[Rfam]
RNA sequence: CUUAACUUUACAACUGAGGAUGGGAAUGACGGAACCAUGUAUCCUGAAACCAUCCCGCCAAUACUCCUGCGCGCGUCAUGACUAACAGGUCAUGGGGUGUGAAGUACAGGUAGAUUCGGCAGAACGAAGGCUAGAGCCAUUUUGAAAUAAAAAAAAAAAAAAGAGGUAUGCCAACGGAUAUGUCGCGUGGCUGAAAA
Numbered sequence: 001c002u003u004a005a006c007u008u009u010a011c012a013a014c015u016g017a018g019g020a021u022g023g024g025a026a027u028g029a030c031g032g033a034a035c036c037a038u039g040u041a042u043c044c045u046g047a048a049a050c051c052a053u054c055c056c057g058c059c060a061a062u063a064c065u066c067c068u069g070c071g072c073g074c075g076u077c078a079u080g081a082c083u084a085a086c087a088g089g090u091c092a093u094g095g096g097g098u099g100u101g102a103a104g105u106a107c108a109g110g111u112a113g114a115u116u117c118g119g120c121a122g123a124a125c126g127a128a129g130g131c132u133a134g135a136g137c138c139a140u141u142u143u144g145a146a147a148u149a150a151a152a153a154a155a156a157a158a159a160a161a162a163g164a165g166g167u168a169u170g171c172c173a174a175c176g177g178a179u180a181u182g183u184c185g186c187g188u189g190g191c192u193g194a195a196a197a
Stems, first nucleotide, its partner, number of pairs: 018055006031045002034042001056189003066110004070101005076095008117185005125176002129172002132149002140145001156169001162167001
Group II catalytic intron D1-D4-5: a 197-nucleotide RNA sequence from Paenibacillus sp. N3.4. From the family's description: Group II introns are found in rRNA, tRNA and mRNA of organelles in fungi, plants and protists, and also in mRNA in bacteria. Its family is annotated with Group II intron splicing in the Gene Ontology.